[Rfam]
RNA: RAGATH-18 RNA
RNA sequence: CUUGUGGACUGUUAUAAAAACGAGAGUAGCCCAGGCAAAAUCGGACAGGAUGAAGCAAGAA
Numbered sequence: 001c002u003u004g005u006g007g008a009c010u011g012u013u014a015u016a017a018a019a020a021c022g023a024g025a026g027u028a029g030c031c032c033a034g035g036c037a038a039a040a041u042c043g044g045a046c047a048g049g050a051u052g053a054a055g056c057a058a059g060a061a
Stems, first nucleotide, its partner, number of pairs: 001059005009048005021043003029036002